[Rfam]
RNA sequence: CCAAAGGUCCUUUUCAGGACCACCCAACAGAUCAAAAGAAGAGCUGU
Numbered sequence: 001c002c003a004a005a006g007g008u009c010c011u012u013u014u015c016a017g018g019a020c021c022a023c024c025c026a027a028c029a030g031a032u033c034a035a036a037a038g039a040a041g042a043g044c045u046g047u
Stems, first nucleotide, its partner, number of pairs: 006021006